[Rfam]
This 349-nucleotide RNA sequence from Eubacterium sp. CAG:156 belongs to the Rfam family "Bacterial RNase P class A".
The source organism's lineage runs through Bacteria, Bacillota, Eubacteriales, Eubacteriaceae and Eubacterium.
RNA sequence: UGAGUAGGAUAAAUGGUCGCGGAUGCUAUUGCCGAAAGGACGCAGACGAGGAAAGUCCGGGCUUCAUAGGGCAGGAUGCCGGCUAACGGCCGGUGGAGGUGACUCCCAGGAAAGUGCAACAGAGAGCAGACCGCCGGAUAUUCUCCGGUAAGGGUGAAAGGGCAGUGUAAGAGACUACCGCCUUUUUGGUAACAGAAAGGGCAUUGUAAACCCCAUUCGAAGCAAGACUGAACAGAAAGCAUAAAGUGGCCCGCUUGCUUUCGGGUAGGUCGCUUGAACAUAUUGGCAACAAUAUGUCUAGAUAGAUGACCAUUCAUGACAUAACCCGGCUUACAGUCCUACUCAUUAA
Numbered sequence: 001u002g003a004g005u006a007g008g009a010u011a012a013a014u015g016g017u018c019g020c021g022g023a024u025g026c027u028a029u030u031g032c033c034g035a036a037a038g039g040a041c042g043c044a045g046a047c048g049a050g051g052a053a054a055g056u057c058c059g060g061g062c063u064u065c066a067u068a069g070g071g072c073a074g075g076a077u078g079c080c081g082g083c084u085a086a087c088g089g090c091c092g093g094u095g096g097a098g099g100u101g102a103c104u105c106c107c108a109g110g111a112a113a114g115u116g117c118a119a120c121a122g123a124g125a126g127c128a129g130a131c132c133g134c135c136g137g138a139u140a141u142u143c144u145c146c147g148g149u150a151a152g153g154g155u156g157a158a159a160g161g162g163c164a165g166u167g168u169a170a171g172a173g174a175c176u177a178c179c180g181c182c183u184u185u186u187u188g189g190u191a192a193c194a195g196a197a198a199g200g201g202c203a204u205u206g207u208a209a210a211c212c213c214c215a216u217u218c219g220a221a222g223c224a225a226g227a228c229u230g231a232a233c234a235g236a237a238a239g240c241a242u243a244a245a246g247u248g249g250c251c252c253g254c255u256u257g258c259u260u261u262c263g264g265g266u267a268g269g270u271c272g273c274u275u276g277a278a279c280a281u282a283u284u285g286g287c288a289a290c291a292a293u294a295u296g297u298c299u300a301g302a303u304a305g306a307u308g309a310c311c312a313u314u315c316a317u318g319a320c321a322u323a324a325c326c327c328g329g330c331u332u333a334c335a336g337u338c339c340u341a342c343u344c345a346u347u348a349a
Base pairs, nucleotide, nucleotide: 001345002344003343004342005341006340007339008338009337010336012314013313014312015311016310017309018308020048021047024044025043026042053332054331055330057329058328059327060326061325062222063221064220065219069252070251071250072249074218075217076216077215078214079093080092081091082090083089094108095106096105097104098103109213110212114211115210116207117206118205131153132152133149134148135147136146137145138144161179162178164176165175166174180202181200182199183198184197185196186195187194188193226271227270228269229268235262236261237260238259239258240257244256245255246254247253278297279296280295281294282293283292284291285290